[Rfam]
RNA sequence: GGGUGCCUGAGGCUUUCUGCGUUCAGGCUUUAGGUGAGGAUUCAGAAAGACGAAGCCCCAGGAGAUGUUACCAUCAACCUGAGGCCGACAAUCCAAACCCAUCACGCUGGAUAGUAGCCUCUUCUUCGCAUGGAGGCAACGAGAUGCUGACAAAAUACG
Numbered sequence: 001g002g003g004u005g006c007c008u009g010a011g012g013c014u015u016u017c018u019g020c021g022u023u024c025a026g027g028c029u030u031u032a033g034g035u036g037a038g039g040a041u042u043c044a045g046a047a048a049g050a051c052g053a054a055g056c057c058c059c060a061g062g063a064g065a066u067g068u069u070a071c072c073a074u075c076a077a078c079c080u081g082a083g084g085c086c087g088a089c090a091a092u093c094c095a096a097a098c099c100c101a102u103c104a105c106g107c108u109g110g111a112u113a114g115u116a117g118c119c120u121c122u123u124c125u126u127c128g129c130a131u132g133g134a135g136g137c138a139a140c141g142a143g144a145u146g147c148u149g150a151c152a153a154a155a156u157a158c159g
Stems, first nucleotide, its partner, number of pairs: 001059003005056002008054001011051001013049007021041002024038001027035002060080003064075004081121005088115002091112005125150002129146002
RNA: sok antitoxin (CssrC)